[Rfam]
RNA sequence: GGCCUAAACUGUACGAAUUGUACGGCAUGGUCUAAAAACGGUUCAACGUAGAAAGCUCCUAGUCAGAGCACGUUGAACCGUCAUAUCUCGAAAGGGGUAUGGGUGGCCCGCAAGGGUCCAUC
Number, nucleotide and partner (000 for none) at each position: 001g032002g031003c030004c029005u000006a000007a000008a000009c025010u024011g023012u022013a021014c020015g000016a000017a000018u000019u000020g014021u013022a012023c011024g010025g009026c000027a000028u000029g004030g003031u002032c001033u000034a000035a000036a000037a000038a000039c080040g079041g078042u077043u076044c075045a074046a073047c072048g071049u070050a000051g000052a000053a000054a000055g069056c068057u067058c066059c000060u000061a000062g000063u000064c000065a000066g058067a057068g056069c055070a049071c048072g047073u046074u045075g044076a043077a042078c041079c040080g039081u000082c101083a100084u099085a098086u097087c096088u095089c094090g000091a000092a000093a000094g089095g088096g087097g086098u085099a084100u083101g082102g122103g121104u120105g119106g118107c000108c000109c000110g000111c000112a000113a000114g000115g000116g000117u000118c106119c105120a104121u103122c102
Rfam assigns this 122-nucleotide RNA sequence to the family "LOOT RNA". Pairs were carried over by alignment from the consensus structure, which is taken from published work. The family's RNA type in Rfam is small RNA. It is one of the family's seed sequences.